[Rfam]
Nucleotides: 205
Stems, first nucleotide, its partner, number of pairs: 027178004033173006040166011
Number, partner (000 for none) and nucleotide at each position: 001000a002000a003000a004000a005000a006000g007000a008000c009000a010000a011000a012000c013000c014000c015000u016000g017000g018000u019000u020000u021000c022000c023000g024000u025000a026000c027178c028177c029176a030175a031000u032000g033173u034172u035171u036170g037169a038168c039000c040166g041165u042164u043163c044162g045161u046160c047159u048158u049157a050156u051000u052000u053000g054000a055000a056000a057000a058000a059000a060000u061000u062000a063000u064000g065000a066000a067000a068000a069000a070000a071000a072000u073000u074000a075000a076000a077000a078000a079000g080000a081000c082000a083000a084000g085000u086000c087000a088000c089000g090000c091000a092000c093000a094000a095000a096000g097000u098000a099000u100000u101000a102000a103000u104000c105000a106000u107000g108000u109000u110000u111000u112000a113000u114000c115000a116000u117000c118000u119000a120000a121000c122000a123000a124000u125000a126000a127000u128000a129000a130000a131000c132000a133000u134000a135000c136000g137000a138000a139000u140000u141000a142000u143000a144000a145000a146000a147000a148000a149000a150000u151000u152000u153000c154000a155000u156050a157049u158048a159047a160046g161045a162044c163043g164042g165041a166040c167000a168038g169037u170036c171035a172034a173033a174000u175030u176029u177028g178027g179000a180000c181000a182000c183000g184000c185000a186000a187000a188000c189000c190000c191000a192000g193000a194000g195000u196000u197000u198000g199000c200000c201000u202000u203000u204000u205000u